Rfam assigns this 80-nucleotide RNA sequence from Anopheles gambiae to the family "mir-970 microRNA precursor family". Rfam 15.1 lists 75 matches to the family in 74 species. Rfam's curators put it in the seed alignment. Gene Ontology terms of the family: RISC complex and miRNA-mediated post-transcriptional gene silencing.
[Rfam]
RNA sequence: GGAAGAUAGCCAGCGUUUGUUUUAUUUGGUAUGUUACUACUGCUGCAAGCUAUAUCAUAAGACACACGCGGCUAUUUUCC
Number, nucleotide and partner (000 for none) at each position: 001g080002g079003a078004a077005g076006a075007u000008a073009g072010c071011c070012a000013g069014c068015g067016u000017u000018u064019g063020u000021u062022u061023u060024a000025u000026u000027u057028g056029g055030u054031a053032u052033g051034u000035u000036a000037c000038u000039a000040c000041u000042g000043c000044u000045g000046c000047a000048a000049g000050c000051u033052a032053u031054a030055u029056c028057a027058u000059a000060a023061g022062a021063c019064a018065c000066a000067c015068g014069c013070g011071g010072c009073u008074a000075u006076u005077u004078u003079c002080c001